Notes: A member of the RNA family "tRNA" from Anaerocolumna cellulosilytica, 73 nucleotides long. Transfer RNA (tRNA) molecules are approximately 80 nucleotides in length. It scores 60 bits against the family's covariance model. It is annotated as a transfer RNA. The source organism's lineage runs through Bacteria, Bacillati, Lachnospirales, Lachnospiraceae and Anaerocolumna. Pairs were carried over by alignment from the consensus structure, which is taken from published work.
[Rfam]
RNA sequence: GGGGGUAUAGCUCAGUUGGGAGAGCGCUUGAAUGGCAUUCAAGAGGUCAUGGGUUCAAGUCCCACUAUCUCCA
Numbered sequence: 001g002g003g004g005g006u007a008u009a010g011c012u013c014a015g016u017u018g019g020g021a022g023a024g025c026g027c028u029u030g031a032a033u034g035g036c037a038u039u040c041a042a043g044a045g046g047u048c049a050u051g052g053g054u055u056c057a058a059g060u061c062c063c064a065c066u067a068u069c070u071c072c073a
Stems, first nucleotide, its partner, number of pairs: 001072007010025004027043005050064004